[Rfam]
transfer-messenger RNA: a 357-nucleotide sequence from Clostridium sp. USBA 49. It is annotated as a non-coding RNA gene. The match comes from Rfam's covariance-model search (174 bits). The literature on the family includes a 1996 paper in RNA by Williams and Bartel, "Phylogenetic analysis of tmRNA secondary structure".
RNA sequence: GGGGGUGUAUUUGGUUUCGACGGGGGAUAGUGGUAUCUGAGAAGCGAGUGGAGGGAACCCGUGGUCCCGCCUUAAAAAACUAUGGGAUUAAAUAUAAACGCUAAUAACGAUAAUUUAGCUUUAGCAGCUUAGUCUGCUAACGUCAGCCUAAGAGUACCGCGGCUUAGAGUCUGGCGUCGAUAGCGGUGAAACGAGCCUGUGUAAGCUUUGCCACAGGAACGGGAUAUAUGAAGCUACUGAAACCAAAAGCCUGUCCUUAGGCGUUUGGUAGAGGGAAUGUAAAAAUAAGGACUGCACUCGGAGAAGCUCGGAUACUACUUCUUUCGGACAGCGGUUCGACUCCGCUCACCUCCACCA
Numbered sequence: 001g002g003g004g005g006u007g008u009a010u011u012u013g014g015u016u017u018c019g020a021c022g023g024g025g026g027a028u029a030g031u032g033g034u035a036u037c038u039g040a041g042a043a044g045c046g047a048g049u050g051g052a053g054g055g056a057a058c059c060c061g062u063g064g065u066c067c068c069g070c071c072u073u074a075a076a077a078a079a080c081u082a083u084g085g086g087a088u089u090a091a092a093u094a095u096a097a098a099c100g101c102u103a104a105u106a107a108c109g110a111u112a113a114u115u116u117a118g119c120u121u122u123a124g125c126a127g128c129u130u131a132g133u134c135u136g137c138u139a140a141c142g143u144c145a146g147c148c149u150a151a152g153a154g155u156a157c158c159g160c161g162g163c164u165u166a167g168a169g170u171c172u173g174g175c176g177u178c179g180a181u182a183g184c185g186g187u188g189a190a191a192c193g194a195g196c197c198u199g200u201g202u203a204a205g206c207u208u209u210g211c212c213a214c215a216g217g218a219a220c221g222g223g224a225u226a227u228a229u230g231a232a233g234c235u236a237c238u239g240a241a242a243c244c245a246a247a248a249g250c251c252u253g254u255c256c257u258u259a260g261g262c263g264u265u266u267g268g269u270a271g272a273g274g275g276a277a278u279g280u281a282a283a284a285a286u287a288a289g290g291a292c293u294g295c296a297c298u299c300g301g302a303g304a305a306g307c308u309c310g311g312a313u314a315c316u317a318c319u320u321c322u323u324u325c326g327g328a329c330a331g332c333g334g335u336u337c338g339a340c341u342c343c344g345c346u347c348a349c350c351u352c353c354a355c356c357a
Base pairs, nucleotide, nucleotide: 001353002352003351004350005349006348007347021326022325023324024323025322026321027320033315034314035313036312037311038310039309040308041307045300046299047298048297049296050071051070053068054067058086059085060084061083062082063081121140122139123138124137125136126135127134141176142175143174144173145172146171148167153165154164157188160185161184194225196223197222198221199220200219210234211233214230237274238273242269243268244267245266246265249262250261251260253292254291255290256289258285330346331345332344333343334342